A member of the RNA family "DUF3800-VIII RNA" from Oxalobacteraceae bacterium CAVE-383, 66 nucleotides long. NCBI's taxonomy places the organism under Bacteria, Pseudomonadati, Pseudomonadota, Betaproteobacteria, Oxalobacteraceae. By type it is a small RNA.

[Rfam]
RNA sequence: CAAGCCCUUCGUUUUGCGAACGUCCAAGUUCCACUUGGGACAUUGAUGUAGCAAGCGCGGGGCUUU
Numbered sequence: 001c002a003a004g005c006c007c008u009u010c011g012u013u014u015u016g017c018g019a020a021c022g023u024c025c026a027a028g029u030u031c032c033a034c035u036u037g038g039g040a041c042a043u044u045g046a047u048g049u050a051g052c053a054a055g056c057g058c059g060g061g062g063c064u065u066u
Stems, first nucleotide, its partner, number of pairs: 002065007010057004015053003023039007